RNA sequence: ACCCUCUGGUUCCCUUUCCCAUCAACUCUUGAUGCUGGUCUUGGUGGUCAUAAAGGACGGAGAACACAUUGAAACUGGCCUCCUAGCAAUGUAGUGUGGUAUAGAGCACUGGGUCAGAUUCAUACAUGC
Numbered sequence: 001a002c003c004c005u006c007u008g009g010u011u012c013c014c015u016u017u018c019c020c021a022u023c024a025a026c027u028c029u030u031g032a033u034g035c036u037g038g039u040c041u042u043g044g045u046g047g048u049c050a051u052a053a054a055g056g057a058c059g060g061a062g063a064a065c066a067c068a069u070u071g072a073a074a075c076u077g078g079c080c081u082c083c084u085a086g087c088a089a090u091g092u093a094g095u096g097u098g099g100u101a102u103a104g105a106g107c108a109c110u111g112g113g114u115c116a117g118a119u120u121c122a123u124a125c126a127u128g129c
Stems, first nucleotide, its partner, number of pairs: 003059001005057003019047005027038002075117007090108003